[Rfam]
RNA sequence: CGGCUCUUCCUAUCAUUGGGACGCAGAAGUCCCAAAGUGUCGGAUUGUUCACCCGCUAAUAGGGAACGUGAGCUGGGUUUAGACCGUCGUGAGACAGGUUAGUU
Numbered sequence: 001c002g003g004c005u006c007u008u009c010c011u012a013u014c015a016u017u018g019g020g021a022c023g024c025a026g027a028a029g030u031c032c033c034a035a036a037g038u039g040u041c042g043g044a045u046u047g048u049u050c051a052c053c054c055g056c057u058a059a060u061a062g063g064g065a066a067c068g069u070g071a072g073c074u075g076g077g078u079u080u081a082g083a084c085c086g087u088c089g090u091g092a093g094a095c096a097g098g099u100u101a102g103u104u
Base pairs, nucleotide, nucleotide: 001076002074003073004072005071006068007065008064009063010062011061014039015038017034018033019032020031021030022029041055042054043053045051082100083099084098085097086095087094088093
Eukaryotic large subunit ribosomal RNA: a 104-nucleotide part of an RNA from Plasmodium yoelii. Rfam's curators put it in the seed alignment.